[Rfam]
RNA sequence: GUCUGUGUAAAAAAGUUAAGACAACCUAGGCAACAGAUUAAGGACUAGUUCCUUACUUUGCACCUAGGGGAAAGUCCCCGGACCUUGAGGCAGAGAGUGCCGCGUGCGCAGGCACGUAGACCCUCCGUACUUACACUGUUAAGUCCACCAACAAGCGAUCCCACCCCGGCGGGGGAGUCGAGCAGCGUGCAGCAGGGCCGUCCUCCGUCAAGUCUUCUAGUUACGCAGGCAGUGCGCUUCAACGCACACUAACCACAAGGGGCUCAUUCUCAGCACGGC
Numbered sequence: 001g002u003c004u005g006u007g008u009a010a011a012a013a014a015g016u017u018a019a020g021a022c023a024a025c026c027u028a029g030g031c032a033a034c035a036g037a038u039u040a041a042g043g044a045c046u047a048g049u050u051c052c053u054u055a056c057u058u059u060g061c062a063c064c065u066a067g068g069g070g071a072a073a074g075u076c077c078c079c080g081g082a083c084c085u086u087g088a089g090g091c092a093g094a095g096a097g098u099g100c101c102g103c104g105u106g107c108g109c110a111g112g113c114a115c116g117u118a119g120a121c122c123c124u125c126c127g128u129a130c131u132u133a134c135a136c137u138g139u140u141a142a143g144u145c146c147a148c149c150a151a152c153a154a155g156c157g158a159u160c161c162c163a164c165c166c167c168g169g170c171g172g173g174g175g176a177g178u179c180g181a182g183c184a185g186c187g188u189g190c191a192g193c194a195g196g197g198c199c200g201u202c203c204u205c206c207g208u209c210a211a212g213u214c215u216u217c218u219a220g221u222u223a224c225g226c227a228g229g230c231a232g233u234g235c236g237c238u239u240c241a242a243c244g245c246a247c248a249c250u251a252a253c254c255a256c257a258a259g260g261g262g263c264u265c266a267u268u269c270u271c272a273g274c275a276c277g278g279c
Base pairs, nucleotide, nucleotide: 003278004277005276006275007274008273012270015230016229017228022225025068026067027066028065029064030063040054041053042052043051044050073264074263076262077261078260079259089101090100091099092098102117103116104115105114106113107112119202120201121200125197126196128194130192134189135188136187145185148182165173166172167171232249233248234247236245237244

Rfam assigns this 279-nucleotide sequence from Hipposideros armiger to the family "RNase MRP". The base pairs follow the family's consensus structure, which is taken from published work.